[Rfam]
Rfam assigns this 133-nucleotide RNA sequence from Cricetulus griseus to the family "Small nucleolar RNA SNORA13".
About the family: ACA13 is a member of the H/ACA class of snoRNA that guide the sites of modification of uridines to pseudouridines.
RNA sequence: AGCCUUUGUGUUGCCUGUUCACCUUUGGUCACUAGUGAAUGUGGUGUCAAAAAAGGCAUAAAUUAAUGCUUUGCAGCCAUUGCUUACCCUGGAGUUCAGUGUCUUGGGUGUAGGAGCUUCGUAAGUAACAGAA
Numbered sequence: 001a002g003c004c005u006u007u008g009u010g011u012u013g014c015c016u017g018u019u020c021a022c023c024u025u026u027g028g029u030c031a032c033u034a035g036u037g038a039a040u041g042u043g044g045u046g047u048c049a050a051a052a053a054a055g056g057c058a059u060a061a062a063u064u065a066a067u068g069c070u071u072u073g074c075a076g077c078c079a080u081u082g083c084u085u086a087c088c089c090u091g092g093a094g095u096u097c098a099g100u101g102u103c104u105u106g107g108g109u110g111u112a113g114g115a116g117c118u119u120c121g122u123a124a125g126u127a128a129c130a131g132a133a
Base pairs, nucleotide, nucleotide: 002057003056004055005054006053007052009049010048012046013045014044015043016041017040018039019038020037021036022035068126069125070124071123072121073120075118076117077116083114084113085112086111087110088108089107092103093102